[Rfam]
Shown here is a 66-nucleotide sequence from Zootermopsis nevadensis, a member of the family "Selenocysteine insertion sequence 1". The incorporation of selenocysteine into a protein sequence is directed by an in-frame UGA codon (usually a stop codon) within the coding region of the mRNA. Selenoprotein mRNAs contain a conserved secondary structure in the 3' UTR that is required for the distinction of UGA stop from UGA selenocysteine. Rfam 15.1 lists 3,793 matches to the family in 721 species. The match comes from Rfam's covariance-model search (37 bits).
RNA sequence: UCUUGUUUAUGAUGGUUCAACUAUAAACCAAAAUUGUUGGUGGGUUGAACCUGAUAAGGCUCAUGC
Numbered sequence: 001u002c003u004u005g006u007u008u009a010u011g012a013u014g015g016u017u018c019a020a021c022u023a024u025a026a027a028c029c030a031a032a033a034u035u036g037u038u039g040g041u042g043g044g045u046u047g048a049a050c051c052u053g054a055u056a057a058g059g060c061u062c063a064u065g066c
Base pairs, nucleotide, nucleotide: 002065004063005062014051015050016049017048018047019046020045021044022043029039030038031037